[Rfam]
RNA sequence: GCUUCCGCUCACACCCACUGCUGGCACCCAGAGCUGGUCCUGAUCACUCGGUGCUGUCAGUGGGUGUGAGCGGUGGCUG
Dot-bracket structure: ....((((((((((((((((.(((((((.....................))))))).))))))))))))))))......
RNA: mir-9198 microRNA precursor family
Organism: Cnephaeus nilssonii